[Rfam]
RNA sequence: UGAAAGUCCCGGACGGCGGCCAUAGGGACGGAGCAUGCUCGCAUGCGCAGACCUAUGGAUAUCGGGCGGGCAAGCCGGUAUGAGUAAGCAGGGCGAUGGCCCGGAUUACGAAUACCGGCGGCGAUUGCGGGAGCGCAAGGCGCGGAGCAAUCGGCUUUCA
Numbered sequence: 001u002g003a004a005a006g007u008c009c010c011g012g013a014c015g016g017c018g019g020c021c022a023u024a025g026g027g028a029c030g031g032a033g034c035a036u037g038c039u040c041g042c043a044u045g046c047g048c049a050g051a052c053c054u055a056u057g058g059a060u061a062u063c064g065g066g067c068g069g070g071c072a073a074g075c076c077g078g079u080a081u082g083a084g085u086a087a088g089c090a091g092g093g094c095g096a097u098g099g100c101c102c103g104g105a106u107u108a109c110g111a112a113u114a115c116c117g118g119c120g121g122c123g124a125u126u127g128c129g130g131g132a133g134c135g136c137a138a139g140g141c142g143c144g145g146a147g148c149a150a151u152c153g154g155c156u157u158u159c160a
Stems, first nucleotide, its partner, number of pairs: 001160007008070004015063002018060001020058007030048001033046005074119008084109004091102004122153007133143004
RNA: Clostridiales-1 RNA